[Rfam]
Record summary:
Shown here is a 74-nucleotide sequence from Denticeps clupeoides, a member of the family "Small nucleolar RNA SNORD47". It is annotated as a C/D-box small nucleolar RNA. A search with the family's covariance model found it, with a score of 54 bits. Taxonomically the source falls in Denticeps (Eukaryota, Euteleostomi, Osteoglossocephalai, Denticipitoidei).
RNA sequence: GACCUGUGAUUACUAUAUUUUGCCAGAUGACAUGCAUGAUUAUAGCCUUACCGUUCCAUUUUCUUUCUGAGGUC
Numbered sequence: 001g002a003c004c005u006g007u008g009a010u011u012a013c014u015a016u017a018u019u020u021u022g023c024c025a026g027a028u029g030a031c032a033u034g035c036a037u038g039a040u041u042a043u044a045g046c047c048u049u050a051c052c053g054u055u056c057c058a059u060u061u062u063c064u065u066u067c068u069g070a071g072g073u074c
Base pairs, nucleotide, nucleotide: 001074002073003072004071